Record summary:
This 110-nucleotide sequence from Phtheirospermum japonicum belongs to the Rfam family "Small nucleolar RNA snoR97". The family's consensus secondary structure was predicted with WAR. By type it is an H/ACA-box small nucleolar RNA. Taxonomically the source falls in Phtheirospermum (Eukaryota, Spermatophyta, Mesangiospermae, lamiids). For this family Rfam cites "Experimental RNomics: identification of 140 candidates for small non-messenger RNAs in the plant Arabidopsis thaliana" (Marker et al., Curr Biol, 2002).
RNA sequence: AAGUAAGUUAUGGUCGAGGGUCUGGAAAACUCGGAAGAUUUAUGUGUUGUCUAUGAGCUUCUUCUCUUGAUAUUCUGACGGGUUUGGAGUUAAAUAACAACAUUACAAUU
Numbered sequence: 001a002a003g004u005a006a007g008u009u010a011u012g013g014u015c016g017a018g019g020g021u022c023u024g025g026a027a028a029a030c031u032c033g034g035a036a037g038a039u040u041u042a043u044g045u046g047u048u049g050u051c052u053a054u055g056a057g058c059u060u061c062u063u064c065u066c067u068u069g070a071u072a073u074u075c076u077g078a079c080g081g082g083u084u085u086g087g088a089g090u091u092a093a094a095u096a097a098c099a100a101c102a103u104u105a106c107a108a109u110u
Base pairs, nucleotide, nucleotide: 044103045102046101047100048099049098056091057090058089059088060087061086064082065081066080